U4 spliceosomal RNA: a 141-nucleotide RNA sequence from Prolemur simus. By type it is a spliceosomal small nuclear RNA. Rfam's curators write: U4 small nuclear RNA (U4 snRNA) is a component of the major U2-dependent spliceosome. The source organism's lineage runs through Eukaryota, Vertebrata, Sarcopterygii, Tetrapoda and Prolemur. The match comes from Rfam's covariance-model search (84 bits).
RNA sequence: ACCCUUGCACGGUGGCAGAAUCAUAACCAGUGAGGUUUAUCCAAGGCACGAUUAUUGCUAAUUGAAAACUUUUCCCUAUACCCCAUGAUGACAACUUGAAAUACAGUCAGCAUUGGCGAUUUUUGACAGCCUCUAUGGAGA
Numbered sequence: 001a002c003c004c005u006u007g008c009a010c011g012g013u014g015g016c017a018g019a020a021u022c023a024u025a026a027c028c029a030g031u032g033a034g035g036u037u038u039a040u041c042c043a044a045g046g047c048a049c050g051a052u053u054a055u056u057g058c059u060a061a062u063u064g065a066a067a068a069c070u071u072u073u074c075c076c077u078a079u080a081c082c083c084c085a086u087g088a089u090g091a092c093a094a095c096u097u098g099a100a101a102u103a104c105a106g107u108c109a110g111c112a113u114u115g116g117c118g119a120u121u122u123u124u125g126a127c128a129g130c131c132u133c134u135a136u137g138g139a140g141a
Stems, first nucleotide, its partner, number of pairs: 020052003024048001027046002034042002083116002085113003089109004131140003